Record summary
The record is a 31-nucleotide RNA from Microcaecilia unicolor, which matches "Iron response element II" in Rfam. The match comes from Rfam's covariance-model search (30 bits). Rfam 15.1 lists 5,197 matches to the family in 722 species. The family's consensus secondary structure is taken from published work. Rfam describes the family as follows. IRE, TFRC, SLC40A1, SDHB, SLC11A2, CDC42BPA, ACO2, ALAS2_H.SAPIENS, CDC14A, EPAS1, ALAS2, qoxD, Hao1, NDUFS1, transferrin, Aconitate. The source organism's lineage runs through Eukaryota, Bilateria, Sarcopterygii, Siphonopidae and Microcaecilia.
RNA sequence: UUUUCUUCAGCAACAGUGUCUGCUAAGAUAA
Dot-bracket structure: ((.((((.((((.(...)..)))))))).))
Numbered sequence: 001u002u003u004u005c006u007u008c009a010g011c012a013a014c015a016g017u018g019u020c021u022g023c024u025a026a027g028a029u030a031a
Stems, first nucleotide, its partner, number of pairs: 001031002004028004009024004014018001